[Rfam]
Record summary: Shown here is a 187-nucleotide RNA from Clostridium tepidiprofundi, a member of the family "6S / SsrS RNA". The match comes from Rfam's covariance-model search (60 bits). From the family's description: E. coli 6S RNA was the first non coding RNA to be sequenced, but its function was unknown until recently. It consists of 184 nucleotides that fold into an extended hairpin structure with a large single-stranded internal bulge. The family's consensus secondary structure is taken from published work. By type it is a non-coding RNA gene. NCBI's taxonomy places the organism under Bacteria, Bacillati, Bacillota, Clostridia, Clostridium tepidiprofundi.
Nucleotides: 187
Base pairs, nucleotide, nucleotide: 003184005182006181007180008179009178010177011176012175013174014173015172017171018170030160031159032158033157034156035155036154038151039150054133055132056131058129059128060127061126062125067122068121069120070119071118072117073116079110080109084106085105086104087103
Number, partner (000 for none) and nucleotide at each position: 001000u002000a003184g004000u005182u006181u007180c008179u009178g010177a011176a012175g013174u014173g015172u016000u017171c018170g019000a020000g021000u022000u023000a024000c025000u026000u027000a028000u029000u030160a031159u032158g033157c034156u035155c036154a037000a038151c039150c040000g041000a042000c043000a044000a045000a046000a047000u048000g049000a050000u051000u052000a053000c054133g055132g056131g057000a058129u059128u060127u061126u062125c063000a064000a065000a066000a067122g068121u069120u070119u071118u072117a073116c074000c075000u076000a077000u078000g079110u080109c081000a082000u083000g084106c085105u086104c087103c088000g089000c090000u091000u092000u093000a094000a095000u096000u097000a098000u099000u100000u101000u102000g103087g104086g105085a106084g107000a108000a109080g110079a111000c112000a113000g114000a115000a116073g117072u118071a119070a120069g121068a122067u123000g124000a125062g126061a127060a128059a129058a130000a131056c132055c133054c134000a135000c136000c137000u138000g139000c140000u141000u142000g143000g144000a145000c146000g147000g148000c149000g150039g151038g152000c153000g154036u155035g156034a157033g158032c159031a160030u161000a162000u163000a164000a165000g166000g167000a168000g169000a170018c171017g172015g173014c174013a175012u176011u177010u178009u179008g180007g181006g182005g183000c184003u185000a186000a187000u